Trypanosomatid snoRNA TB10Cs5H3: a 73-nucleotide sequence from Trypanosoma theileri.

RNA sequence: UAACGGGAACUCUCUGGAUGCACUUUCCGGUUUUUUUGCUCCGGGUGUUACUCCUCAUCUGUUUCCGGAGAAA
Numbered sequence: 001u002a003a004c005g006g007g008a009a010c011u012c013u014c015u016g017g018a019u020g021c022a023c024u025u026u027c028c029g030g031u032u033u034u035u036u037u038g039c040u041c042c043g044g045g046u047g048u049u050a051c052u053c054c055u056c057a058u059c060u061g062u063u064u065c066c067g068g069a070g071a072a073a
Base pairs, nucleotide, nucleotide: 004067005066006065007064008063009062010061016054017053018052028043029042
The match comes from Rfam's covariance-model search (69 bits).
The source organism's lineage runs through Eukaryota, Discoba, Euglenozoa, Metakinetoplastina and Trypanosoma.
The literature on the family includes a 2008 paper in BMC Bioinformatics by Myslyuk et al., "Psiscan: a computational approach to identify H/ACA-like and AGA-like non-coding RNA in trypanosomatid genomes".
It is annotated as an H/ACA-box small nucleolar RNA.